[Rfam]
A member of the RNA family "Eukaryotic large subunit ribosomal RNA" from Mixia osmundae, 288 nucleotides of a longer RNA. The family has 88 seed sequences and 107,465 matches in Rfam 15.1. Taxonomically the source falls in Mixia osmundae (Eukaryota, Opisthokonta, Mixiomycetes, Mixia). The sequence is in the family's curated seed alignment.
RNA sequence: GAGUCUAACAUGCCUGCAAGUCUUUGGGUGAUUGAAACCCUCGGGCGGAAUGAAAGUGAAUGAAGGUGGGACUCCUCUGGAAGCACCAUCGACCGGUCCGAAUUCCUCUGUGAAGCAGGAACCGAGUAAGAGCAUGUAUGUUGGGACCCGAAAGAUGGUGAACUAUGCCUGAAUAGGGUGAAGCCAGAGGAAACUCUGGUGGAGGCUCGUAGCGGUUCUGACGUGCAAAUCGAUCGUCAAAUUUGGGUAUAGGGGCGAAAGACUAAUCGAACCAUCUGGUAGCUGGUU
Number, nucleotide and partner (000 for none) at each position: 001g000002a000003g000004u000005c144006u143007a142008a141009c140010a139011u138012g137013c136014c000015u134016g133017c132018a000019a000020g046021u045022c044023u000024u000025u000026g040027g039028g038029u037030g000031a000032u000033u000034g000035a000036a000037a029038c028039c027040c026041u000042c000043g000044g022045g021046c020047g000048g000049a000050a057051u056052g000053a000054a000055a000056g051057u050058g000059a000060a000061u000062g000063a000064a000065g090066g089067u088068g087069g086070g000071a000072c000073u081074c080075c000076u000077c000078u000079g000080g074081a073082a000083g000084c000085a000086c069087c068088a067089u066090c065091g000092a127093c126094c124095g123096g122097u120098c119099c118100g000101a000102a000103u114104u113105c000106c000107u000108c000109u000110g000111u000112g000113a104114a103115g000116c000117a000118g099119g098120a097121a000122c096123c095124g094125a000126g093127u092128a000129a000130g000131a000132g017133c016134a015135u000136g013137u012138a011139u010140g009141u008142u007143g006144g005145g000146a000147c286148c285149c000150g283151a000152a000153a000154g276155a275156u274157g273158g272159u271160g000161a000162a000163c252164u251165a250166u249167g248168c247169c246170u245171g244172a243173a242174u240175a000176g208177g207178g206179u205180g000181a000182a000183g200184c199185c198186a197187g196188a195189g194190g000191a000192a000193a000194c189195u188196c187197u186198g185199g184200u183201g000202g000203a000204g000205g179206c178207u177208c176209g000210u000211a000212g237213c236214g235215g234216u000217u233218c232219u000220g231221a230222c000223g000224u000225g000226c000227a000228a000229a000230u221231c220232g218233a217234u215235c214236g213237u212238c000239a000240a174241a000242u173243u172244u171245g170246g169247g168248u167249a166250u165251a164252g163253g000254g264255g263256c000257g000258a000259a000260a000261g000262a000263c255264u254265a000266a000267u000268c000269g000270a000271a159272c158273c157274a156275u155276c154277u000278g000279g000280u000281a000282g000283c150284u000285g148286g147287u000288u000